RNA: RNA of unknown function RUF4
Organism: Drosophila albomicans
Nucleotides: 356
Base pairs, nucleotide, nucleotide: 003164004163005162006161007160010157011156012155013154014153015152016151017150022145023144024143025142026141027140028139034127035126036125037124038123039122040121041120042119043118047114048113049112050111051110052109053108054107055106056105057104058103059102060101061100062099063098064097065096129138130137131136170287171286174272176270177269178268179267180266181265182264186256187255188254189253190252192250194248195247196246197245198244199243273285274284294310295309296308297307298306319352320351321346322345323344324343325342326341327340328339330337
Number, partner (000 for none) and nucleotide at each position: 001000a002000u003164a004163c005162a006161c007160g008000u009000u010157a011156u012155g013154u014153a015152u016151g017150u018000c019000a020000u021000a022145c023144a024143c025142g026141u027140c028139a029000u030000g031000u032000a033000u034127g035126u036125c037124a038123u039122a040121c041120a042119u043118g044000u045000c046000a047114u048113a049112c050111a051110c052109a053108u054107g055106u056105a057104u058103g059102u060101c061100a062099u063098a064097c065096a066000c067000g068000u069000c070000a071000a072000c073000g074000u075000a076000u077000g078000a079000c080000a081000u082000a083000c084000a085000u086000g087000u088000g089000u090000a091000u092000g093000a094000c095000a096065u097064g098063u099062a100061u101060g102059a103058c104057a105056u106055a107054c108053a109052u110051g111050u112049g113048u114047a115000u116000g117000a118043c119042a120041u121040g122039u123038a124037u125036g126035a127034c128000a129138u130137a131136c132000a133000u134000g135000u136131g137130u138129a139028u140027g141026a142025c143024g144023u145022g146000u147000a148000u149000u150017a151016c152015a153014u154013a155012c156011a157010u158000g159000a160007c161006g162005u163004g164003u165000a166000u167000g168000a169000c170287a171286u172000a173000c174272a175000c176270g177269a178268c179267g180266u181265g182264u183000a184000u185000u186256a187255c188254a189253u190252g191000u192250c193000a194248u195247g196246u197245a198244u199243g200000u201000c202000a203000u204000a205000c206000a207000u208000g209000u210000c211000a212000u213000a214000c215000a216000c217000a218000u219000g220000u221000a222000u223000g224000u225000c226000a227000u228000a229000c230000a231000u232000g233000u234000c235000a236000u237000g238000u239000a240000u241000g242000u243199c244198a245197u246196a247195c248194a249000c250192g251000u252190c253189a254188u255187g256186u257000a258000u259000g260000u261000a262000a263000u264182a265181c266180a267179c268178g269177u270176c271000a272174u273285g274284u275000a276000u277000g278000u279000a280000a281000u282000a283000c284274a285273c286171g287170u288000c289000a290000u291000a292000c293000a294310c295309a296308u297307g298306u299000a300000u301000g302000u303000c304000a305000u306298a307297c308296a309295u310294g311000u312000c313000a314000c315000a316000c317000a318000c319352g320351u321346c322345a323344u324343a325342c326341a327340u328339g329000u330337c331000a332000u333000a334000c335000a336000c337330g338000u339328c340327a341326u342325g343324u344323a345322u346321g347000u348000c349000a350000u351320a352319c353000a354000u355000g356000u